[Rfam]
RNA: MIR319 microRNA precursor family
RNA sequence: CAGAAAUGGGGGUUCUUUCCAGCCCAAAACAGUACUCGGUUAUUUUCUUUUAAACCUCAGUUUUGGACUGAAAGGAGCUCCUAAUUCUU
Numbered sequence: 001c002a003g004a005a006a007u008g009g010g011g012g013u014u015c016u017u018u019c020c021a022g023c024c025c026a027a028a029a030c031a032g033u034a035c036u037c038g039g040u041u042a043u044u045u046u047c048u049u050u051u052a053a054a055c056c057u058c059a060g061u062u063u064u065g066g067a068c069u070g071a072a073a074g075g076a077g078c079u080c081c082u083a084a085u086u087c088u089u
Base pairs, nucleotide, nucleotide: 007083008082009081010080011079012078013077014076015075016074017073018072021069022068024066025065026064027063028062